Shown here is a 108-nucleotide RNA sequence from Vitis vinifera, a member of the family "MIR394 microRNA precursor family". On this family, see Jones-Rhoades and Bartel, Mol Cell 2004: "Computational identification of plant microRNAs and their targets, including a stress-induced miRNA". Rfam links the family to the GO terms miRNA-mediated post-transcriptional gene silencing and RISC complex.

[Rfam]
RNA sequence: UUUACAGAGCCAAUUUGGCAUCCUGGCCGCCUCCAAACGCUUGUGGGCGCCAAUUCAGAAGAAUUGGUAUAUAUGGAGGUGGACAGAAUGCCAAAAUGGCUCUGUAAU
Dot-bracket structure: ..........(...((((((...((.((((((((........................................)))))))).))...))))))...)..........
Numbered sequence: 001u002u003u004a005c006a007g008a009g010c011c012a013a014u015u016u017g018g019c020a021u022c023c024u025g026g027c028c029g030c031c032u033c034c035a036a037a038c039g040c041u042u043g044u045g046g047g048c049g050c051c052a053a054u055u056c057a058g059a060a061g062a063a064u065u066g067g068u069a070u071a072u073a074u075g076g077a078g079g080u081g082g083a084c085a086g087a088a089u090g091c092c093a094a095a096a097u098g099g100c101u102c103u104g105u106a107a108u
Stems, first nucleotide, its partner, number of pairs: 011098001015094006024085002027082008